Shown here is a 199-nucleotide RNA sequence from Perkinsus chesapeaki, a member of the family "ACEA small nucleolar RNA U3". On this family, see Marz and Stadler, RNA Biol 2010: "Comparative analysis of eukaryotic U3 snoRNA". Its family is annotated with RNA processing and nucleolus in the Gene Ontology. The organism belongs to Perkinsus, within Eukaryota. Clan: U3 clan. The family has 28 seed sequences and 2,156 matches in Rfam 15.1. Small nucleolar RNAs (snoRNAs) are involved in the processing and modification of rRNA in the nucleolus. There are two main classes of snoRNAs: the box C/D class, and the box H/ACA class.
[Rfam]
RNA sequence: UCGACUGUACUCGAACAGGAUCACUUAUGUAGUGAUUUCCUUUCGUUCACAAGAGUACUCUUGACAAAACCCUAAACCGUGAUGAUGAUAUGUAUACCACAUCCACUCGGAGGUUUAGUCCACAAUAAUAAUAAUUGUGCGACUUCGAUGAGUUUAAUACUUCAACAGAAGUUACGGAUGUUGGUAAUACUGAGCGGUU
Numbered sequence: 001u002c003g004a005c006u007g008u009a010c011u012c013g014a015a016c017a018g019g020a021u022c023a024c025u026u027a028u029g030u031a032g033u034g035a036u037u038u039c040c041u042u043u044c045g046u047u048c049a050c051a052a053g054a055g056u057a058c059u060c061u062u063g064a065c066a067a068a069a070c071c072c073u074a075a076a077c078c079g080u081g082a083u084g085a086u087g088a089u090a091u092g093u094a095u096a097c098c099a100c101a102u103c104c105a106c107u108c109g110g111a112g113g114u115u116u117a118g119u120c121c122a123c124a125a126u127a128a129u130a131a132u133a134a135u136u137g138u139g140c141g142a143c144u145u146c147g148a149u150g151a152g153u154u155u156a157a158u159a160c161u162u163c164a165a166c167a168g169a170a171g172u173u174a175c176g177g178a179u180g181u182u183g184g185u186a187a188u189a190c191u192g193a194g195c196g197g198u199u
Stems, first nucleotide, its partner, number of pairs: 003039001006035001008034004017028001019026002043067001045065003049061001051059001076198005095186005100180005109154002118143003123137001160171004